Background: Shown here is a 104-nucleotide RNA sequence from Ramlibacter lithotrophicus, a member of the family "Glycine riboswitch aptamer". NCBI's taxonomy places the organism under Bacteria, Betaproteobacteria, Burkholderiales, Comamonadaceae, Ramlibacter. Rfam's curators write: This family represents the bacterial glycine riboswitch.
[Rfam]
RNA sequence: CACUUCCUUGCUGGAGAGAGGCGGCGCCGCGAGCGCCGUCCACCGAAGGAGCAAACCCGCCUGCGCGGGUGAAUCUCUCAGGUAAAGCGGACAGCAGGGGCCGG
Number, nucleotide and partner (000 for none) at each position: 001c000002a000003c000004u000005u000006c099007c098008u097009u096010g095011c094012u093013g092014g000015a000016g000017a000018g000019a000020g040021g039022c038023g037024g036025c035026g000027c000028c000029g000030c000031g000032a000033g000034c000035g025036c024037c023038g022039u021040c020041c000042a083043c082044c081045g079046a078047a000048g000049g077050a076051g075052c000053a000054a000055a070056c069057c068058c067059g000060c000061c000062u000063g000064c000065g000066c000067g058068g057069g056070u055071g000072a000073a000074u000075c051076u050077c049078u046079c045080a000081g044082g043083u042084a000085a000086a000087g000088c000089g000090g000091a000092c013093a012094g011095c010096a009097g008098g007099g006100g000101c000102c000103g000104g000